The record is a 190-nucleotide RNA from Anopheles stephensi, which matches "drz-agam-2-2 ribozyme" in Rfam. The family's consensus secondary structure is taken from published work. On this family, see Webb et al., Science 2009: "Widespread occurrence of self-cleaving ribozymes". Taxonomically the source falls in Neocellia (Eukaryota, Hexapoda, Neoptera, Panorpida). Rfam links the family to the GO term catalytic activity.

[Rfam]
RNA sequence: AGCAAUACCGCACUGAUACGGGUAUGGUCCGAAGCCUCUUGAAGGAUAAUAUAGGAUAUCCAUACCCUACUCCGAUUAAAAACGUCCACGGCGUACAGAACGGUAACAUAUUUCUCCUAUAAUCUGAUCUUGGGUAAACGGGGAAACCCAACCCUUUGGGAGGAUGGGUCAUAUGGCUAAAUUGAGCGGG
Numbered sequence: 001a002g003c004a005a006u007a008c009c010g011c012a013c014u015g016a017u018a019c020g021g022g023u024a025u026g027g028u029c030c031g032a033a034g035c036c037u038c039u040u041g042a043a044g045g046a047u048a049a050u051a052u053a054g055g056a057u058a059u060c061c062a063u064a065c066c067c068u069a070c071u072c073c074g075a076u077u078a079a080a081a082a083c084g085u086c087c088a089c090g091g092c093g094u095a096c097a098g099a100a101c102g103g104u105a106a107c108a109u110a111u112u113u114c115u116c117c118u119a120u121a122a123u124c125u126g127a128u129c130u131u132g133g134g135u136a137a138a139c140g141g142g143g144a145a146a147c148c149c150a151a152c153c154c155u156u157u158g159g160g161a162g163g164a165u166g167g168g169u170c171a172u173a174u175g176g177c178u179a180a181a182u183u184g185a186g187c188g189g190g
Stems, first nucleotide, its partner, number of pairs: 020067008029055002071190004076186002079183002082094003086103002107175005114168001116167002122165004130151006153160002
Dot-bracket structure: ...................((((((((.((.......................))....))))))))...((((.((.((.(((.[[....))).......]]...(((((..(.((....((((....((((((..........)))))).((....)).)))))))..)))))......)).))))))